[Rfam]
RNA: Small nucleolar RNA SNORD79
Organism: Dissostichus mawsoni
RNA sequence: GAAUGUAAAUGAUGAUCUUGUAACAAAACAUUGGGAAUCUCUUUGAAUCAGAGUGAAAGAAGACUUGUAUCUGAUGCGUGC
Dot-bracket structure: (.(((((...................................................................))))).)